RNA sequence: AAAGGAACAAUAACGCCUUCCUGAUAGAACAAGAAAUCGGUUAUUGCUCCUUUACU
Numbered sequence: 001a002a003a004g005g006a007a008c009a010a011u012a013a014c015g016c017c018u019u020c021c022u023g024a025u026a027g028a029a030c031a032a033g034a035a036a037u038c039g040g041u042u043a044u045u046g047c048u049c050c051u052u053u054a055c056u
Stems, first nucleotide, its partner, number of pairs: 001053006008046007018035003022031002